Source information
Rfam assigns this 131-nucleotide sequence from Centropus unirufus to the family "Small nucleolar RNA SNORA24". It is annotated as an H/ACA-box small nucleolar RNA.

[Rfam]
RNA sequence: AUCCAUGACUCCAUGGGGGCCGCCGGCCGUGGCUGUCCCCCUUCCUAGGCAUGGAAGAGCAGCGCCUUGCUAAUUGGCAAAGCUUCUACCCGCGUGUGGGUAUUGGUCGUUGACUGUAGCGAGGGACAGGC
Numbered sequence: 001a002u003c004c005a006u007g008a009c010u011c012c013a014u015g016g017g018g019g020c021c022g023c024c025g026g027c028c029g030u031g032g033c034u035g036u037c038c039c040c041c042u043u044c045c046u047a048g049g050c051a052u053g054g055a056a057g058a059g060c061a062g063c064g065c066c067u068u069g070c071u072a073a074u075u076g077g078c079a080a081a082g083c084u085u086c087u088a089c090c091c092g093c094g095u096g097u098g099g100g101u102a103u104u105g106g107u108c109g110u111u112g113a114c115u116g117u118a119g120c121g122a123g124g125g126a127c128a129g130g131c
Stems, first nucleotide, its partner, number of pairs: 002055006015041004020035001022033003068128002071125001074122003077117002080115001083106002088101004
A search with the family's covariance model found it, with a score of 62 bits. Pairs were carried over by alignment from the consensus structure, which was predicted with RNAfold. The family has 5 seed sequences and 852 matches in Rfam 15.1. About the family: ACA24 is a member of the H/ACA class of snoRNA that guide the sites of modification of uridines to pseudouridines. The organism belongs to Centropus, within Eukaryota.